[Rfam]
RNA sequence: CCUCUUUAAUAAUCUUUAACAAAGACUACAUUAUUGUUCGUCAGAUCUUAACGUUCGACUAUGGCGAUAAAUGGUGCUCGGAAUAAGCGCAGCGGAACCGGGGGCGGUACCCGGCGCCUCCACCAUGAGUUGUAUCUAUAUUAUGGAUAGCAGGUUUUUAAUGGGGGCGAAAUAGAGUCGACGUGCGUAAUAAAGGGUCACUUUUUGCUCGGUAUUGUUCCACCGUUAUCGGGCUUUCAUACUAGUUGCGAACGACAACUAUUUUGAGGCUCGCCUGGCUGCGUGAUGCGGCUCGGCUUCCUCUAACUAAUUCGUUUUGGAUUUUUGCCUAAAACGUGAGGCUUGCGAGCCGCCUAGCAACAGAAGGCUCGUGCU
Numbered sequence: 001c002c003u004c005u006u007u008a009a010u011a012a013u014c015u016u017u018a019a020c021a022a023a024g025a026c027u028a029c030a031u032u033a034u035u036g037u038u039c040g041u042c043a044g045a046u047c048u049u050a051a052c053g054u055u056c057g058a059c060u061a062u063g064g065c066g067a068u069a070a071a072u073g074g075u076g077c078u079c080g081g082a083a084u085a086a087g088c089g090c091a092g093c094g095g096a097a098c099c100g101g102g103g104g105c106g107g108u109a110c111c112c113g114g115c116g117c118c119u120c121c122a123c124c125a126u127g128a129g130u131u132g133u134a135u136c137u138a139u140a141u142u143a144u145g146g147a148u149a150g151c152a153g154g155u156u157u158u159u160a161a162u163g164g165g166g167g168c169g170a171a172a173u174a175g176a177g178u179c180g181a182c183g184u185g186c187g188u189a190a191u192a193a194a195g196g197g198u199c200a201c202u203u204u205u206u207g208c209u210c211g212g213u214a215u216u217g218u219u220c221c222a223c224c225g226u227u228a229u230c231g232g233g234c235u236u237u238c239a240u241a242c243u244a245g246u247u248g249c250g251a252a253c254g255a256c257a258a259c260u261a262u263u264u265u266g267a268g269g270c271u272c273g274c275c276u277g278g279c280u281g282c283g284u285g286a287u288g289c290g291g292c293u294c295g296g297c298u299u300c301c302u303c304u305a306a307c308u309a310a311u312u313c314g315u316u317u318u319g320g321a322u323u324u325u326u327g328c329c330u331a332a333a334a335c336g337u338g339a340g341g342c343u344u345g346c347g348a349g350c351c352g353c354c355u356a357g358c359a360a361c362a363g364a365a366g367g368c369u370c371g372u373g374c375u
Stems, first nucleotide, its partner, number of pairs: 040059003044055003063209005073202004078197002088187003092184003098114005115169007210225004217234001219233003339355004347369001350366001
Dot-bracket structure: .......................................(((.(((......))).)))...(((((.....((((.((........(((.(((...(((((.......)))))(((((((.........................................)))))))............))))))........)).))))..)))))((((...[.[[[)))).....]]]]........................................................................................................((((....[..[.))))..........]..]......
RNA: Alphaproteobacteria transfer-messenger RNA